[Rfam]
RNA sequence: UAAAUAUCACAGGGGAGCUCUUGCUGAGAAAGGCACAUGCCUGACCCUCAUGACCUGAUCCGGACAAUGCCGGCGCGGGGAGUGAAGCACAGCCCCUC
Numbered sequence: 001u002a003a004a005u006a007u008c009a010c011a012g013g014g015g016a017g018c019u020c021u022u023g024c025u026g027a028g029a030a031a032g033g034c035a036c037a038u039g040c041c042u043g044a045c046c047c048u049c050a051u052g053a054c055c056u057g058a059u060c061c062g063g064a065c066a067a068u069g070c071c072g073g074c075g076c077g078g079g080g081a082g083u084g085a086a087g088c089a090c091a092g093c094c095c096c097u098c
Base pairs, nucleotide, nucleotide: 007085008084009083010082011048012047013046014045017024018023031042032041033040034039054079055078056077057076060073061072062071063070

Shown here is a 98-nucleotide RNA sequence from Pseudoramibacter alactolyticus, a member of the family "TPP riboswitch aptamer (THI element)". Rfam links the family to the GO term thiamine pyrophosphate binding. From the family's description: Vitamin B(1) in its active form thiamin pyrophosphate (TPP) is an essential coenzyme that is synthesised by coupling of pyrimidine and thiazole moieties in bacteria.